[Rfam]
RNA: Small nucleolar RNA SNORA61
RNA sequence: AGCCUGUCCAUCGGAUCUAAACCCUGGUCUCGGUGGUCGUAAGAGGAGGAAUAGUAGUACUGAAACUGUGCUCGUCGUGUGUGCUGUAUAGCAUGUGGGCUAGUUUCAGACAAGG
Numbered sequence: 001a002g003c004c005u006g007u008c009c010a011u012c013g014g015a016u017c018u019a020a021a022c023c024c025u026g027g028u029c030u031c032g033g034u035g036g037u038c039g040u041a042a043g044a045g046g047a048g049g050a051a052u053a054g055u056a057g058u059a060c061u062g063a064a065a066c067u068g069u070g071c072u073c074g075u076c077g078u079g080u081g082u083g084c085u086g087u088a089u090a091g092c093a094u095g096u097g098g099g100c101u102a103g104u105u106u107c108a109g110a111c112a113a114g115g
Stems, first nucleotide, its partner, number of pairs: 008036005014029004066103003070100004078093001